[Rfam]
RNA sequence: UGACGGAGCUACACCACAAGGAGUGGAUUGUGCGGCUUAAUUUGACUCAACGCGAGGAAGCUUACCAGGGCCAAGUGCUGUGGAGAAAGGAGCAGGACAGAAGUGGUGCAUGGUCGUUGGAAAUUGAUGGGAUGACUUUGGCCUUAAAUGGCUGAAUGAGUGAGAUCUUUGGACAUGUUCCCACAGGAACAGGAAGGGGAGGCUAUAACAGAUCAGAGAUGCCCUUAGAUGCCCUGGGCUGCACGCGCAAUACAAUAGCACGUAGACGUAGAGAACAACACGUGCUGAGGUGGACUGUGCUCUGCAAGGGGCACACGAAAGAGGAAUUCCUAGUAAGCGCCCAUCACCAGUGGGCGUUGAGUCAGUCCCUGUAGCUUGUACACACCGUCCGUCACUAUCUCAGAUGUUUUUCGGGAUGAAGAGUCCAGGCUCUGAAUAACGGAAAGUAGAUAAGAUGUAAGUCGUAGCAAGGUUGCGGUCGAUGAACCAUUAGCAGGAUCAUAA
Numbered sequence: 001u002g003a004c005g006g007a008g009c010u011a012c013a014c015c016a017c018a019a020g021g022a023g024u025g026g027a028u029u030g031u032g033c034g035g036c037u038u039a040a041u042u043u044g045a046c047u048c049a050a051c052g053c054g055a056g057g058a059a060g061c062u063u064a065c066c067a068g069g070g071c072c073a074a075g076u077g078c079u080g081u082g083g084a085g086a087a088a089g090g091a092g093c094a095g096g097a098c099a100g101a102a103g104u105g106g107u108g109c110a111u112g113g114u115c116g117u118u119g120g121a122a123a124u125u126g127a128u129g130g131g132a133u134g135a136c137u138u139u140g141g142c143c144u145u146a147a148a149u150g151g152c153u154g155a156a157u158g159a160g161u162g163a164g165a166u167c168u169u170u171g172g173a174c175a176u177g178u179u180c181c182c183a184c185a186g187g188a189a190c191a192g193g194a195a196g197g198g199g200a201g202g203c204u205a206u207a208a209c210a211g212a213u214c215a216g217a218g219a220u221g222c223c224c225u226u227a228g229a230u231g232c233c234c235u236g237g238g239c240u241g242c243a244c245g246c247g248c249a250a251u252a253c254a255a256u257a258g259c260a261c262g263u264a265g266a267c268g269u270a271g272a273g274a275a276c277a278a279c280a281c282g283u284g285c286u287g288a289g290g291u292g293g294a295c296u297g298u299g300c301u302c303u304g305c306a307a308g309g310g311g312c313a314c315a316c317g318a319a320a321g322a323g324g325a326a327u328u329c330c331u332a333g334u335a336a337g338c339g340c341c342c343a344u345c346a347c348c349a350g351u352g353g354g355c356g357u358u359g360a361g362u363c364a365g366u367c368c369c370u371g372u373a374g375c376u377u378g379u380a381c382a383c384a385c386c387g388u389c390c391g392u393c394a395c396u397a398u399c400u401c402a403g404a405u406g407u408u409u410u411u412c413g414g415g416a417u418g419a420a421g422a423g424u425c426c427a428g429g430c431u432c433u434g435a436a437u438a439a440c441g442g443a444a445a446g447u448a449g450a451u452a453a454g455a456u457g458u459a460a461g462u463c464g465u466a467g468c469a470a471g472g473u474u475g476c477g478g479u480c481g482a483u484g485a486a487c488c489a490u491u492a493g494c495a496g497g498a499u500c501a502u503a504a
Stems, first nucleotide, its partner, number of pairs: 001382002003379003007376007016366002020330005025253001027251008035242002041056004065237007075098002078095003102225002105223004111219001113213003116209004123161003127157002129138003140153004167202004174193001176191006257286006291320001296315007336358008387468002390464002393461001396457005402451001405448009416437002420433005473496004478491001481488001

This 504-nucleotide part of an RNA from Endoreticulatus sp. CHW-2008 Austria belongs to the Rfam family "Microsporidia small subunit ribosomal RNA".
The organism belongs to Endoreticulatus, within Eukaryota.